[Rfam]
RNA sequence: CGCGCGGCAGGACGAAAAGACCCCGGGACCUUCACUAUAGCUUGGUAUUGGUGUUUACUGCGGUUUGUGUAGCAUAGGUGGGAGACUAUGAAACGCUCACGCCAGUGGGUGUGGAGUCACAAUGUGAAAUACCACUCUGACCGUAGUGGAUGUCUUAACCUUGGCCCAUGAUCUGGGUUGGGGACAGUGCCUGGUGGGUAGUUUAACUGGGGCGGUUGCCUCCCAAAAUGUAACGGAGGCGCCCAAAGGUUCCCUCAGCCUGGUUGGCAAUCAGGUGUUUAGAGUGUAAGUGCACAAGGGAGCUUGACUGCGAGACCUACAAGUCGAGCAGGGACGAAAGUCGGGACUAGUGAUCCGGCACCUACUUGUGGAUGUGGUGUCGCUCAACGGAUAAAAGGUACCCCGGGGAUAACAGGCUGAUCUUCCCCAAGAGUCCAUAUCGACGGGAUGGUUUGGCACCUCGAUGUCGGCUCGUCGCAUCCUGGGGCUGGAGUAGGUCCCAAGGGUUGGGCUGUUCGCCCAUUAAAGCGGCACGCGAGCUGGGUUCAGAACGUCGUGAGACAGUUCGGUCUCUAUCCGCCGCGCGCGU
Numbered sequence: 001c002g003c004g005c006g007g008c009a010g011g012a013c014g015a016a017a018a019g020a021c022c023c024c025g026g027g028a029c030c031u032u033c034a035c036u037a038u039a040g041c042u043u044g045g046u047a048u049u050g051g052u053g054u055u056u057a058c059u060g061c062g063g064u065u066u067g068u069g070u071a072g073c074a075u076a077g078g079u080g081g082g083a084g085a086c087u088a089u090g091a092a093a094c095g096c097u098c099a100c101g102c103c104a105g106u107g108g109g110u111g112u113g114g115a116g117u118c119a120c121a122a123u124g125u126g127a128a129a130u131a132c133c134a135c136u137c138u139g140a141c142c143g144u145a146g147u148g149g150a151u152g153u154c155u156u157a158a159c160c161u162u163g164g165c166c167c168a169u170g171a172u173c174u175g176g177g178u179u180g181g182g183g184a185c186a187g188u189g190c191c192u193g194g195u196g197g198g199u200a201g202u203u204u205a206a207c208u209g210g211g212g213c214g215g216u217u218g219c220c221u222c223c224c225a226a227a228a229u230g231u232a233a234c235g236g237a238g239g240c241g242c243c244c245a246a247a248g249g250u251u252c253c254c255u256c257a258g259c260c261u262g263g264u265u266g267g268c269a270a271u272c273a274g275g276u277g278u279u280u281a282g283a284g285u286g287u288a289a290g291u292g293c294a295c296a297a298g299g300g301a302g303c304u305u306g307a308c309u310g311c312g313a314g315a316c317c318u319a320c321a322a323g324u325c326g327a328g329c330a331g332g333g334a335c336g337a338a339a340g341u342c343g344g345g346a347c348u349a350g351u352g353a354u355c356c357g358g359c360a361c362c363u364a365c366u367u368g369u370g371g372a373u374g375u376g377g378u379g380u381c382g383c384u385c386a387a388c389g390g391a392u393a394a395a396a397g398g399u400a401c402c403c404c405g406g407g408g409a410u411a412a413c414a415g416g417c418u419g420a421u422c423u424u425c426c427c428c429a430a431g432a433g434u435c436c437a438u439a440u441c442g443a444c445g446g447g448a449u450g451g452u453u454u455g456g457c458a459c460c461u462c463g464a465u466g467u468c469g470g471c472u473c474g475u476c477g478c479a480u481c482c483u484g485g486g487g488c489u490g491g492a493g494u495a496g497g498u499c500c501c502a503a504g505g506g507u508u509g510g511g512c513u514g515u516u517c518g519c520c521c522a523u524u525a526a527a528g529c530g531g532c533a534c535g536c537g538a539g540c541u542g543g544g545u546u547c548a549g550a551a552c553g554u555c556g557u558g559a560g561a562c563a564g565u566u567c568g569g570u571c572u573c574u575a576u577c578c579g580c581c582g583c584g585c586g587c588g589u
Stems, first nucleotide, its partner, number of pairs: 001586008010578003014573002022407006028399005034202004041194002044191004050154016067137001077136005084118003093112008159182003163179006205217004218240006241388001243345002249303006255283002258276006284293002308331004314325003333342003356382007364375002416457003420454001421451002424448004431441002468543001469541004473535001474532005481506002484501006508522005549567004553562003
Dot-bracket structure: ((((((((.(((.((......(((((((((((.((((...((.((((..((((((((((((((((.(.........(((((..(((......((((((((....))))))))...))).............)))))).))))))))))))))))....(((.((((((.....))))))))).....)))).))....))))..((((.....))))((((((...........))))))(.((....((((((((.((((((.......)))))).....))((......))....))))))....((((..(((......)))..)))).(((....))).))..........(((((((.((........))))))))).....)......)))))..))))))........(((.(((.((((...((.......))...)))).))..))))..........(((((((((((..((.((((((......))))))...)).(((((.....))))).....)))))..)..)))).).....(((((((....))).))))....))..)))))))))))...